[Rfam]
RNA sequence: GGACAUAAACGCGCUCGUAAUAAGCGGAUCGGACCCGGGGGCGGUACCCGGCGGCUCCACCAUAAAAACCUGUCGUUGGAAGGGGUUAAGGGGCCGAAACAGGAUCGACGAACGUCUAAAGGGGUUUGCUUUGUCCCGGUGAGUUACCACCGUUAUCGGUACACUAAGCAUAAUUGCCAACGACAAUCGUGCUCCGGUUGCUCUCGCAGCGUAA
Numbered sequence: 001g002g003a004c005a006u007a008a009a010c011g012c013g014c015u016c017g018u019a020a021u022a023a024g025c026g027g028a029u030c031g032g033a034c035c036c037g038g039g040g041g042c043g044g045u046a047c048c049c050g051g052c053g054g055c056u057c058c059a060c061c062a063u064a065a066a067a068a069c070c071u072g073u074c075g076u077u078g079g080a081a082g083g084g085g086u087u088a089a090g091g092g093g094c095c096g097a098a099a100c101a102g103g104a105u106c107g108a109c110g111a112a113c114g115u116c117u118a119a120a121g122g123g124g125u126u127u128g129c130u131u132u133g134u135c136c137c138g139g140u141g142a143g144u145u146a147c148c149a150c151c152g153u154u155a156u157c158g159g160u161a162c163a164c165u166a167a168g169c170a171u172a173a174u175u176g177c178c179a180a181c182g183a184c185a186a187u188c189g190u191g192c193u194c195c196g197g198u199u200g201c202u203c204u205c206g207c208a209g210c211g212u213a214a
Base pairs, nucleotide, nucleotide: 001136002135003134004133005132013125014124015123016122025114026113029111030110031109035051036050037049038048039047052096053095054094055093056092057091058090137152138151139150140149
Dot-bracket structure: (((((.......((((........((..(((...(((((.......)))))(((((((...............................)))))))............))).)).......))))......)))))((((........))))..............................................................